[Rfam]
RNA sequence: UAGCCUGUCAAAGCGGCGGUGAAAUGUAUCCAUAGCGGUGUUAUCAUAUCACAGCCACUUUGAUGUGGUCGG
Dot-bracket structure: .....((((((((.(((.((((..(((..................))))))).))).)))))))).......
Numbered sequence: 001u002a003g004c005c006u007g008u009c010a011a012a013g014c015g016g017c018g019g020u021g022a023a024a025u026g027u028a029u030c031c032a033u034a035g036c037g038g039u040g041u042u043a044u045c046a047u048a049u050c051a052c053a054g055c056c057a058c059u060u061u062g063a064u065g066u067g068g069u070c071g072g
Stems, first nucleotide, its partner, number of pairs: 006065008015056003019052004025048003

Notes: Shown here is a 72-nucleotide RNA sequence from Chrysodeixis includens, a member of the family "mir-2 microRNA precursor family". The base pairs follow the family's consensus structure, which was predicted with PFOLD. The literature on the family includes a 2001 paper in Cell by Ambros, "microRNAs: tiny regulators with great potential".